[Rfam]
RNA sequence: GGGCUGGCUUUAGCUCAGCGGUUACUUCGUCAGUCUACGGAGCUUUGCUUUGUAACUAUCCUUGAUGGUUCGAGACCCGCGGGCGCUCUCCAGUCCUUUU
Numbered sequence: 001g002g003g004c005u006g007g008c009u010u011u012a013g014c015u016c017a018g019c020g021g022u023u024a025c026u027u028c029g030u031c032a033g034u035c036u037a038c039g040g041a042g043c044u045u046u047g048c049u050u051u052g053u054a055a056c057u058a059u060c061c062u063u064g065a066u067g068g069u070u071c072g073a074g075a076c077c078c079g080c081g082g083g084c085g086c087u088c089u090c091c092a093g094u095c096c097u098u099u100u
Base pairs, nucleotide, nucleotide: 002095003094004093005092006091007090013084014083015082016081018080019079020078021077026074027073028072029071
RNA: Vault RNA